A member of the RNA family "TPP riboswitch aptamer (THI element)" from Ahrensia marina, 95 nucleotides long. Lineage of the source: Bacteria > Pseudomonadati > Pseudomonadota > Hyphomicrobiales > Ahrensia. The base pairs follow the family's consensus structure, which is taken from published work.

Nucleotides: 095
Base pairs, nucleotide, nucleotide: 006083007082008081009080010079011045012044013043014042017026018025019024033038051076052075053074057070058069059068060067
Number, partner (000 for none) and nucleotide at each position: 001000a002000a003000a004000u005000g006083u007082c008081u009080a010079a011045c012044g013043g014042g015000g016000u017026g018025c019024c020000c021000a022000a023000u024019g025018g026017c027000u028000g029000a030000g031000a032000g033038g034000u035000a036000a037000u038033c039000c040000g041000a042014c043013c044012c045011g046000u047000a048000g049000a050000a051076c052075c053074u054000g055000a056000u057070c058069c059068g060067g061000u062000u063000a064000a065000c066000a067060c068059c069058g070057g071000c072000g073000g074053a075052g076051g077000g078000a079010u080009u081008a082007g083006g084000c085000g086000c087000a088000c089000g090000g091000u092000u093000u094000a095000g